[Rfam]
RNA sequence: UAGGUAGAUAGAGGUUGCGUAAUUUAUCAGUAGUAUAUUCGAUGCGGCAGGCGCAAAGGAGAAUAUAGGAAAGGGAAUUACGCCGAAAGGAUCGGAAUCCUGCGUUUUGGUUCUUGGGCAUGGAGUGAAUAAUUCCCUGACUGUCAUCUGAAUAUACAUAUGGAUGGGGCGCUAUCGGAUCG
Numbered sequence: 001u002a003g004g005u006a007g008a009u010a011g012a013g014g015u016u017g018c019g020u021a022a023u024u025u026a027u028c029a030g031u032a033g034u035a036u037a038u039u040c041g042a043u044g045c046g047g048c049a050g051g052c053g054c055a056a057a058g059g060a061g062a063a064u065a066u067a068g069g070a071a072a073g074g075g076a077a078u079u080a081c082g083c084c085g086a087a088a089g090g091a092u093c094g095g096a097a098u099c100c101u102g103c104g105u106u107u108u109g110g111u112u113c114u115u116g117g118g119c120a121u122g123g124a125g126u127g128a129a130u131a132a133u134u135c136c137c138u139g140a141c142u143g144u145c146a147u148c149u150g151a152a153u154a155u156a157c158a159u160a161u162g163g164a165u166g167g168g169g170c171g172c173u174a175u176c177g178g179a180u181c182g
Stems, first nucleotide, its partner, number of pairs: 007176005017083009034067007087115012116142002119139002122136005144167007
RNA: Lysine riboswitch aptamer
Organism: Eubacterium plexicaudatum